Annotation:
Shown here is a 92-nucleotide RNA sequence from Paracoccus sp. J56, a member of the family "Rhodo-rpoB RNA". The family's consensus secondary structure is taken from published work. A search with the family's covariance model found it, with a score of 66 bits. By type it is a cis-regulatory element. NCBI's taxonomy places the organism under Bacteria, Pseudomonadati, Alphaproteobacteria, Paracoccaceae, Paracoccus.
RNA sequence: GGUUCGGGAGUCGUGCGGUGGGACGCACGGCACGAAUUGAACCCCGCCCUCAUUCGCCGCCUUGUGCAGUCCGGGCCCCGACGGCCUGCGCA
Numbered sequence: 001g002g003u004u005c006g007g008g009a010g011u012c013g014u015g016c017g018g019u020g021g022g023a024c025g026c027a028c029g030g031c032a033c034g035a036a037u038u039g040a041a042c043c044c045c046g047c048c049c050u051c052a053u054u055c056g057c058c059g060c061c062u063u064g065u066g067c068a069g070u071c072c073g074g075g076c077c078c079c080g081a082c083g084g085c086c087u088g089c090g091c092a
Stems, first nucleotide, its partner, number of pairs: 001043005010031008063092005069086001071084003